The record is a 110-nucleotide RNA from Caenorhabditis angaria, which matches "SL2 RNA" in Rfam. By type it is a non-coding RNA gene. Rfam's curators write: This family represents SL2 RNA. SL2 RNA is involved in trans splicing in lower eukaryotes. The literature on the family includes a 2001 paper in Gene by Dassanayake et al., "Trans-spliced leader RNA, 5S-rRNA genes and novel variant orphan spliced-leader of the lymphatic filarial nematode Wuchereria bancrofti, and a sensitive polymerase chain reaction based detection assay". Its family is annotated with mRNA trans splicing, via spliceosome in the Gene Ontology. The organism belongs to Caenorhabditis, within Eukaryota. It scores 70 bits against the family's covariance model.
[Rfam]
RNA sequence: GGUUUACACCCAGUUACUUAAGGUAAUUUGGAGUUCUGACCAUUUGUAAGAAUGUGUCAACAACUUAAAUUUUUGGAUAGCAGCUUCACCGGGGAAUCCGGAGAAGCGAU
Numbered sequence: 001g002g003u004u005u006a007c008a009c010c011c012a013g014u015u016a017c018u019u020a021a022g023g024u025a026a027u028u029u030g031g032a033g034u035u036c037u038g039a040c041c042a043u044u045u046g047u048a049a050g051a052a053u054g055u056g057u058c059a060a061c062a063a064c065u066u067a068a069a070u071u072u073u074u075g076g077a078u079a080g081c082a083g084c085u086u087c088a089c090c091g092g093g094g095a096a097u098c099c100g101g102a103g104a105a106g107c108g109a110u
Base pairs, nucleotide, nucleotide: 008034009031010030013027014026015025016024017023037059038058039057040056041054042053043052044051045050085108087106090103093099094098